[Rfam]
RNA sequence: GACGACCGGCCGGACACUCCUGUGCCCGGCCCACAAGUGGAGGCUCCGAUCUCCCACCUGACCGUCCCCCGGGACGGCAGGUCACCCGGUCAGGUGGCCACCAUCGUUCCGUACGGACGAUGGAGCCGCCCGAUUAGCGCCCCGCGACAUACCGCGGCGGUGCUCCGGUAGUGUUUUUGGAGCCCCGCCUGCGAAUCGUCCGGGGCAUUUUUU
Dot-bracket structure: ...((((((..((............))((((..((.((((((........)).)))).)).((((((....))))))..))))..)))))).(((((...((((((((.......))))))))..)))))........(((((((((.....((((((((.(((((............))))).))))).)))..)))..)))))).......